[Rfam]
RNA: mir-1175 microRNA precursor family
Organism: Brugia malayi
RNA sequence: UCACGAAAGUGGAGGUUAGGAUCUGCACUAAACAUUUCAAAUCAGUGAGAUUCUUAUUCCUCCACUUACUUGC
Numbered sequence: 001u002c003a004c005g006a007a008a009g010u011g012g013a014g015g016u017u018a019g020g021a022u023c024u025g026c027a028c029u030a031a032a033c034a035u036u037u038c039a040a041a042u043c044a045g046u047g048a049g050a051u052u053c054u055u056a057u058u059c060c061u062c063c064a065c066u067u068a069c070u071u072g073c
Base pairs, nucleotide, nucleotide: 008067009066010064011063012062013061014060015059017056022050023049026047027046028045029044